transfer-messenger RNA: a 370-nucleotide RNA from Microbacterium aerolatum. Its family is annotated with RNA catabolic process in the Gene Ontology.
[Rfam]
RNA sequence: GGGGCUGAUCGGUUUCGACAGCGCCUGUGAAUCCACGAGAAGCGGGCCGAGGAUGCAGGGUUAUCUCGUGAACGCUCCCUGCAAAACAAUAGUUGCCGAAACAAAGCGCAACGACUUCGCCCUCGCUGCAUAAGCGAGCCCGAUAGUCCGUCAGACCGUAUGUGAUUCCGAUACGGAUCCUGGCGUCAUCUAGGAAUCUUGCUGUGUGACGGCGUCUGGACGUCACGCGGGACUCUUCCCAGGCUGGGCUUGUCGACUUAGGUGUCUGUGACAAAGGUCGGAGCCGAGCAGAACGUCUUCACAGACUGCGCCCGGAGAAGCCGUGGGUACUCAGCGUUGGACGGGGGUUCGAUUCCCCCCAGCUCCACGG
Numbered sequence: 001g002g003g004g005c006u007g008a009u010c011g012g013u014u015u016c017g018a019c020a021g022c023g024c025c026u027g028u029g030a031a032u033c034c035a036c037g038a039g040a041a042g043c044g045g046g047c048c049g050a051g052g053a054u055g056c057a058g059g060g061u062u063a064u065c066u067c068g069u070g071a072a073c074g075c076u077c078c079c080u081g082c083a084a085a086a087c088a089a090u091a092g093u094u095g096c097c098g099a100a101a102c103a104a105a106g107c108g109c110a111a112c113g114a115c116u117u118c119g120c121c122c123u124c125g126c127u128g129c130a131u132a133a134g135c136g137a138g139c140c141c142g143a144u145a146g147u148c149c150g151u152c153a154g155a156c157c158g159u160a161u162g163u164g165a166u167u168c169c170g171a172u173a174c175g176g177a178u179c180c181u182g183g184c185g186u187c188a189u190c191u192a193g194g195a196a197u198c199u200u201g202c203u204g205u206g207u208g209a210c211g212g213c214g215u216c217u218g219g220a221c222g223u224c225a226c227g228c229g230g231g232a233c234u235c236u237u238c239c240c241a242g243g244c245u246g247g248g249c250u251u252g253u254c255g256a257c258u259u260a261g262g263u264g265u266c267u268g269u270g271a272c273a274a275a276g277g278u279c280g281g282a283g284c285c286g287a288g289c290a291g292a293a294c295g296u297c298u299u300c301a302c303a304g305a306c307u308g309c310g311c312c313c314g315g316a317g318a319a320g321c322c323g324u325g326g327g328u329a330c331u332c333a334g335c336g337u338u339g340g341a342c343g344g345g346g347g348u349u350c351g352a353u354u355c356c357c358c359c360c361a362g363c364u365c366c367a368c369g370g
Stems, first nucleotide, its partner, number of pairs: 001366007019339006027331001031328007043314005048068005054083007118142002122138005149185006156176006164198006202230009214245001216243002219240001247285005254280003261272001264306004268300001270298001343359005